RNA sequence: UAAAUAAAGUACAGUAGUCCUUUUUAUAAUAACCUUAUAAUUAGAAUCGGGUAAAUUGCAAGAAAAUCUUAAAAAAAAAAACUUUUGGAAAUAAAAUAAGACAAUUUGCAGCGAAGUUUAAUCCAGCAUAUAAAUUAUCAAAAAAUUUAAGUAUUUAAGAUAAAGGAUUAAAAACGUUCAACGACUAGAAAGUGAGUAAUGCUAACAAUAAUCUUUCCACGAAAACCCGACAAUUAUGUAAAAUUUAUAUAAUUGAUGACAUAGUCUGAACCUAAUAGUGAUAUUAGG
Numbered sequence: 001u002a003a004a005u006a007a008a009g010u011a012c013a014g015u016a017g018u019c020c021u022u023u024u025u026a027u028a029a030u031a032a033c034c035u036u037a038u039a040a041u042u043a044g045a046a047u048c049g050g051g052u053a054a055a056u057u058g059c060a061a062g063a064a065a066a067u068c069u070u071a072a073a074a075a076a077a078a079a080a081a082c083u084u085u086u087g088g089a090a091a092u093a094a095a096a097u098a099a100g101a102c103a104a105u106u107u108g109c110a111g112c113g114a115a116g117u118u119u120a121a122u123c124c125a126g127c128a129u130a131u132a133a134a135u136u137a138u139c140a141a142a143a144a145a146u147u148u149a150a151g152u153a154u155u156u157a158a159g160a161u162a163a164a165g166g167a168u169u170a171a172a173a174a175c176g177u178u179c180a181a182c183g184a185c186u187a188g189a190a191a192g193u194g195a196g197u198a199a200u201g202c203u204a205a206c207a208a209u210a211a212u213c214u215u216u217c218c219a220c221g222a223a224a225a226c227c228c229g230a231c232a233a234u235u236a237u238g239u240a241a242a243a244u245u246u247a248u249a250u251a252a253u254u255g256a257u258g259a260c261a262u263a264g265u266c267u268g269a270a271c272c273u274a275a276u277a278g279u280g281a282u283a284u285u286a287g288g
Stems, first nucleotide, its partner, number of pairs: 001016002026036001047230004052225001057110006067101005111177002117171002124165001181267001183266005233253009273286005
RNA: Group I catalytic intron